Notes: Shown here is a 78-nucleotide RNA from Schistosoma margrebowiei, a member of the family "mir-3492 microRNA precursor family". NCBI's taxonomy places the organism under Eukaryota, Eumetazoa, Protostomia, Trematoda, Schistosoma.
[Rfam]
RNA sequence: AACCCUCUUUAUCCGUGCUGAGAUUUCGUCACACACUACACCACAAGGGCUGAUGAGACUUCCAAGAUAAGUGAAGUG
Numbered sequence: 001a002a003c004c005c006u007c008u009u010u011a012u013c014c015g016u017g018c019u020g021a022g023a024u025u026u027c028g029u030c031a032c033a034c035a036c037u038a039c040a041c042c043a044c045a046a047g048g049g050c051u052g053a054u055g056a057g058a059c060u061u062c063c064a065a066g067a068u069a070a071g072u073g074a075a076g077u078g
Stems, first nucleotide, its partner, number of pairs: 002077002006073001008071006016064002020061003024058007
Its family is annotated with miRNA-mediated post-transcriptional gene silencing and RISC complex in the Gene Ontology.